Rfam assigns this 101-nucleotide RNA sequence from Siminovitchia fortis to the family "Purine riboswitch aptamer". The base pairs follow the family's consensus structure, which is taken from published work. The match comes from Rfam's covariance-model search (80 bits).

RNA sequence: UAAGAUUAAAUUGUUAAACCUCAUAUAUCAUGGGGAUAAGGCCCAUCAGUUUCUACCCAAUUACCGUAAAUAAUUGGACUAUGAGGAAAGUGGGAUUUGGG
Numbered sequence: 001u002a003a004g005a006u007u008a009a010a011u012u013g014u015u016a017a018a019c020c021u022c023a024u025a026u027a028u029c030a031u032g033g034g035g036a037u038a039a040g041g042c043c044c045a046u047c048a049g050u051u052u053c054u055a056c057c058c059a060a061u062u063a064c065c066g067u068a069a070a071u072a073a074u075u076g077g078a079c080u081a082u083g084a085g086g087a088a089a090g091u092g093g094g095a096u097u098u099g100g101g
Stems, first nucleotide, its partner, number of pairs: 019086007030046005057077007